[Rfam]
A member of the RNA family "Small nucleolar RNA SNORD113/SNORD114 family", 72 nucleotides long. The family's RNA type in Rfam is C/D-box small nucleolar RNA. Clan: SNORD74 clan. A reference for the family is Cavaille et al. (2002), "Identification of tandemly-repeated C/D snoRNA genes at the imprinted human 14q32 domain reminiscent of those at the Prader-Willi/Angelman syndrome region", Hum Mol Genet. The imprinted human domain at 14q32 contains two clusters of tandemly repeated small nucleolar RNAs named 14q(I) and 14q(II) snoRNAs. These two clusters are named SNORD113 and SNORD114 respectively in the HGNC approved gene symbol nomenclature. The snoRNAs found in both clusters are clearly related and are represented here by a single family.

RNA sequence: UGGAUCAAUGAUGUCCACUGGUGGCGUAUAAAUCAUAUUUGGUGAAUAUAUGUCUGGAACUCUGAGGUCCAA
Numbered sequence: 001u002g003g004a005u006c007a008a009u010g011a012u013g014u015c016c017a018c019u020g021g022u023g024g025c026g027u028a029u030a031a032a033u034c035a036u037a038u039u040u041g042g043u044g045a046a047u048a049u050a051u052g053u054c055u056g057g058a059a060c061u062c063u064g065a066g067g068u069c070c071a072a
Stems, first nucleotide, its partner, number of pairs: 002070005